Description
Rfam assigns this 94-nucleotide RNA from Xanthomonas citri to the family "Xanthomonadaceae sRNA Xoo1". The source organism's lineage runs through Bacteria, Gammaproteobacteria, Lysobacterales, Lysobacteraceae and Xanthomonas citri pv. citri.

RNA sequence: GUUGCUUCCUACGACAGGCGGCAGCGUCAGGCUCUCUCUCUCUCGCCGACGAAUUCGAAUAAUGACGACGUACCCUUCGCGCCUUCUGGCGCGA
Numbered sequence: 001g002u003u004g005c006u007u008c009c010u011a012c013g014a015c016a017g018g019c020g021g022c023a024g025c026g027u028c029a030g031g032c033u034c035u036c037u038c039u040c041u042c043u044c045g046c047c048g049a050c051g052a053a054u055u056c057g058a059a060u061a062a063u064g065a066c067g068a069c070g071u072a073c074c075c076u077u078c079g080c081g082c083c084u085u086c087u088g089g090c091g092c093g094a
Base pairs, nucleotide, nucleotide: 001025002024003023004022005021006020008018009017010016026069027068028067030047031046032045048056049055077094078093079092080091081090082089083088
It is one of the family's seed sequences.